[Rfam]
RNA sequence: UUGGCCAUCACAGUGGUUGUGAUGUGUUACCCACUUUCAUAUCACAGUCAGCUUUGAUGAGCUAAG
Number, nucleotide and partner (000 for none) at each position: 001u000002u000003g000004g000005c000006c059007a058008u057009c056010a055011c000012a053013g052014u050015g049016g048017u047018u046019g045020u044021g043022a042023u000024g000025u041026g040027u039028u000029a000030c000031c000032c000033a000034c000035u000036u000037u000038c000039a027040u026041a025042u022043c021044a020045c019046a018047g017048u016049c015050a014051g000052c013053u012054u000055u010056g009057a008058u007059g006060a000061g000062c000063u000064a000065a000066g000
RNA: mir-2 microRNA precursor family